[Rfam]
RNA sequence: UUGAUGGCCGAUGCAGCAUCAUCAAGAUUCUCAUGCUCAAAGAAAAAAACUACGGCAAAGAAAUCGCGGUGGCCGUACCAUAUAUUUGCAUGUGAAUCUUGAUGAUGCUGCAGCAGCAACAAA
Numbered sequence: 001u002u003g004a005u006g007g008c009c010g011a012u013g014c015a016g017c018a019u020c021a022u023c024a025a026g027a028u029u030c031u032c033a034u035g036c037u038c039a040a041a042g043a044a045a046a047a048a049a050c051u052a053c054g055g056c057a058a059a060g061a062a063a064u065c066g067c068g069g070u071g072g073c074c075g076u077a078c079c080a081u082a083u084a085u086u087u088g089c090a091u092g093u094g095a096a097u098c099u100u101g102a103u104g105a106u107g108c109u110g111c112a113g114c115a116g117c118a119a120c121a122a123a
Base pairs, nucleotide, nucleotide: 010114012112013111014110015109016108017107018106019105020104021103022102023101024100025099026098027097028096029095030094032092033091034090035089036088

A member of the RNA family "mir-172 microRNA precursor family" from Corchorus capsularis, 123 nucleotides long. mir-172 has been experimentally verified in Arabidopsis thaliana. This family is thought to target mRNAs coding for APETALA2-like transcription factors. The mature sequence is excised from the 3' arm of the hairpin. The source organism's lineage runs through Eukaryota, Euphyllophyta, Magnoliopsida, eudicotyledons and Corchorus.